Group II catalytic intron D1-D4-5: a 217-nucleotide RNA sequence from Hespellia stercorisuis. Group II introns are found in rRNA, tRNA and mRNA of organelles in fungi, plants and protists, and also in mRNA in bacteria. Taxonomically the source falls in Hespellia stercorisuis (Bacteria, Bacillati, Clostridia, Hespellia). Its family is annotated with Group II intron splicing in the Gene Ontology.
RNA sequence: GCUAACUGAUAUUUCGAGGAGUGGAAUGAUAGGGUAACGCCUUGAAACGCUCCCUCUGAUACUGCGACAAAAGAUGAGAACGUGUAAUAGUUCGAUUCUGAUGCAGCUCGCUAAAGUCAGCUGUAUGCACUCGCUAUACCGAGGUCAACACAAGAAACAACGGUAUGGCAAAAGCGAACCAGAGGUGGUCGUGAGUGAUAGGCUGGGAGUCUAUAAA
Numbered sequence: 001g002c003u004a005a006c007u008g009a010u011a012u013u014u015c016g017a018g019g020a021g022u023g024g025a026a027u028g029a030u031a032g033g034g035u036a037a038c039g040c041c042u043u044g045a046a047a048c049g050c051u052c053c054c055u056c057u058g059a060u061a062c063u064g065c066g067a068c069a070a071a072a073g074a075u076g077a078g079a080a081c082g083u084g085u086a087a088u089a090g091u092u093c094g095a096u097u098c099u100g101a102u103g104c105a106g107c108u109c110g111c112u113a114a115a116g117u118c119a120g121c122u123g124u125a126u127g128c129a130c131u132c133g134c135u136a137u138a139c140c141g142a143g144g145u146c147a148a149c150a151c152a153a154g155a156a157a158c159a160a161c162g163g164u165a166u167g168g169c170a171a172a173a174g175c176g177a178a179c180c181a182g183a184g185g186u187g188g189u190c191g192u193g194a195g196u197g198a199u200a201g202g203c204u205g206g207g208a209g210u211c212u213a214u215a216a217a
Stems, first nucleotide, its partner, number of pairs: 018053006031043004054209004064111004068103002072099003078093004118205005128197005133169009174192003178189004